[Rfam]
RNA sequence: GUCUGAGCUGGAGAUGGCAUUCUCCUGGAACCGCCGCAAGGCUGAUGAUGCCUACCUGUCC
Number, nucleotide and partner (000 for none) at each position: 001g000002u000003c000004u000005g000006a000007g000008c000009u000010g025011g024012a023013g022014a000015u000016g052017g051018c050019a049020u048021u047022c013023u012024c011025c010026u000027g000028g000029a000030a000031c000032c000033g042034c041035c040036g000037c000038a000039a000040g035041g034042c033043u000044g000045a000046u000047g021048a020049u019050g018051c017052c016053u000054a000055c000056c000057u000058g000059u000060c000061c000

Rfam assigns this 61-nucleotide RNA sequence from Rhodanobacter thiooxydans to the family "Fluoride riboswitch aptamer (crcB RNA motif)". Pairs were carried over by alignment from the consensus structure, which is taken from published work.